[Rfam]
A member of the RNA family "mir-172 microRNA precursor family" from Carnegiea gigantea, 185 nucleotides long. The family has 11 seed sequences and 2,076 matches in Rfam 15.1. The organism belongs to Carnegiea, within Eukaryota. From the family's description: mir-172 has been experimentally verified in Arabidopsis thaliana. This family is thought to target mRNAs coding for APETALA2-like transcription factors. The mature sequence is excised from the 3' arm of the hairpin.
RNA sequence: GUUUUUGCAGAUGCAGCAUCAUCAAGAUUCACAAAACACCCCCACCUUUUCUCUCUCUCUCUCCCUCUUUUUUUUUUUUGGGGUUUUUGUUGAUGCCCCUAGUUAAUUAGCUUCUUCAUGAAUCAUGAUGUUAAUAAUCCUGGGGAUCAAUUUGAGAAUCUUGAUGAUGCUGCAUCAGCAGAUAC
Number, nucleotide and partner (000 for none) at each position: 001g000002u000003u000004u000005u000006u000007g000008c000009a000010g176011a175012u174013g173014c172015a171016g170017c169018a168019u167020c166021a165022u164023c163024a162025a161026g160027a159028u158029u157030c156031a000032c154033a153034a152035a151036a000037c000038a000039c000040c000041c000042c000043c000044a000045c000046c000047u000048u000049u000050u000051c000052u000053c000054u000055c000056u000057c000058u000059c000060u000061c000062u000063c000064c000065c000066u000067c000068u000069u000070u000071u000072u000073u000074u000075u000076u000077u000078u000079u000080g000081g000082g000083g000084u000085u000086u000087u000088u000089g000090u000091u000092g000093a000094u000095g000096c000097c000098c000099c000100u000101a000102g000103u000104u000105a000106a000107u000108u000109a000110g000111c000112u000113u000114c000115u000116u000117c000118a000119u000120g000121a000122a000123u000124c000125a000126u000127g000128a000129u000130g000131u000132u000133a000134a000135u000136a000137a000138u000139c000140c000141u000142g000143g000144g000145g000146a000147u000148c000149a000150a000151u035152u034153u033154g032155a000156g030157a029158a028159u027160c026161u025162u024163g023164a022165u021166g020167a019168u018169g017170c016171u015172g014173c013174a012175u011176c010177a000178g000179c000180a000181g000182a000183u000184a000185c000